[Rfam]
RNA: Small nucleolar RNA Z279/snoR105/snoR108
Organism: Lathyrus oleraceus
RNA sequence: GAGAUAUGAUGAGUGGUCUAGUCUCCCAUUAAAUAUGCGAGUUGGGUGUCUGCCCCAAGCCAAGUUACGACAAUUUGGAACUCUCCUUUGACCAAUUUGAUAUA
Numbered sequence: 001g002a003g004a005u006a007u008g009a010u011g012a013g014u015g016g017u018c019u020a021g022u023c024u025c026c027c028a029u030u031a032a033a034u035a036u037g038c039g040a041g042u043u044g045g046g047u048g049u050c051u052g053c054c055c056c057a058a059g060c061c062a063a064g065u066u067a068c069g070a071c072a073a074u075u076u077g078g079a080a081c082u083c084u085c086c087u088u089u090g091a092c093c094a095a096u097u098u099g100a101u102a103u104a
Stems, first nucleotide, its partner, number of pairs: 002103001004101001014094005023041003027037001044083004049078002062076004